[Rfam]
RNA sequence: GGAGCCGACAAAGUGGUUGUGGCUUAUGGACUUCUUGAAAACAUAUCACAGCCAGCUUUGUUGACUUCCU
Dot-bracket structure: .....(((((((((((((((((..(((...............)))))))))))).)))))))).......
Numbered sequence: 001g002g003a004g005c006c007g008a009c010a011a012a013g014u015g016g017u018u019g020u021g022g023c024u025u026a027u028g029g030a031c032u033u034c035u036u037g038a039a040a041a042c043a044u045a046u047c048a049c050a051g052c053c054a055g056c057u058u059u060g061u062u063g064a065c066u067u068c069c070u
Stems, first nucleotide, its partner, number of pairs: 006063008014054009025045003